[Rfam]
RNA sequence: AUGCAGGUACAGUUACAAUAAAACUGAAGUGUUCUAUUGUCGUUCCCCCUGCUUAAAGCAUUUGAUACAUUACUAUCUCUGCCCUAGCUCUACCAUAGCUAAGGCAGAGACGCUUGGUUUCAAACAU
Numbered sequence: 001a002u003g004c005a006g007g008u009a010c011a012g013u014u015a016c017a018a019u020a021a022a023a024c025u026g027a028a029g030u031g032u033u034c035u036a037u038u039g040u041c042g043u044u045c046c047c048c049c050u051g052c053u054u055a056a057a058g059c060a061u062u063u064g065a066u067a068c069a070u071u072a073c074u075a076u077c078u079c080u081g082c083c084c085u086a087g088c089u090c091u092a093c094c095a096u097a098g099c100u101a102a103g104g105c106a107g108a109g110a111c112g113c114u115u116g117g118u119u120u121c122a123a124a125c126a127u
Stems, first nucleotide, its partner, number of pairs: 003052005015040006022033003078108004083103001085101001